A member of the RNA family "Small nucleolar RNA SNORD82" from Monodelphis domestica, 73 nucleotides long. The source organism's lineage runs through Eukaryota, Chordata, Teleostomi, Tetrapoda and Monodelphis. Rfam 15.1 lists 649 matches to the family in 590 species. Pairs were carried over by alignment from the consensus structure, which was predicted with PFOLD. From the family's description: snoRNA U82 or Z25 is found in both humans and mice.

RNA sequence: GGCACAAGUGAUGAUCCACAUAGGGACUUAAUUCUGAAGCCUGAUGCAAUGCUUGCUAUAUAUGCUGAUGUGC
Numbered sequence: 001g002g003c004a005c006a007a008g009u010g011a012u013g014a015u016c017c018a019c020a021u022a023g024g025g026a027c028u029u030a031a032u033u034c035u036g037a038a039g040c041c042u043g044a045u046g047c048a049a050u051g052c053u054u055g056c057u058a059u060a061u062a063u064g065c066u067g068a069u070g071u072g073c
Stems, first nucleotide, its partner, number of pairs: 002073005